[Rfam]
RNA sequence: GCGAGGCUGCGUUGCGCGUCAGGAGCCAAUAUCCCCGGGGCCUUAUCGAUCCUCACGGGAACUGUCCCUGGCCGGGUCCGUGGACCCGGUCAUAUGGUGCCCACCUACUUUCGUAGGGAACUCCGGGAUCGAGCGCUUCAACGGCAUCUGUGGCUUCGCG
Numbered sequence: 001g002c003g004a005g006g007c008u009g010c011g012u013u014g015c016g017c018g019u020c021a022g023g024a025g026c027c028a029a030u031a032u033c034c035c036c037g038g039g040g041c042c043u044u045a046u047c048g049a050u051c052c053u054c055a056c057g058g059g060a061a062c063u064g065u066c067c068c069u070g071g072c073c074g075g076g077u078c079c080g081u082g083g084a085c086c087c088g089g090u091c092a093u094a095u096g097g098u099g100c101c102c103a104c105c106u107a108c109u110u111u112c113g114u115a116g117g118g119a120a121c122u123c124c125g126g127g128a129u130c131g132a133g134c135g136c137u138u139c140a141a142c143g144g145c146a147u148c149u150g151u152g153g154c155u156u157c158g159c160g
Base pairs, nucleotide, nucleotide: 002158003157004156005155006154007153008152009151010150011149013146014145015144017143018142019141032128033127034126035125037123038122039121041118042117057102058101059100061098062097063096064095065094070091071090072089073088074087075086076085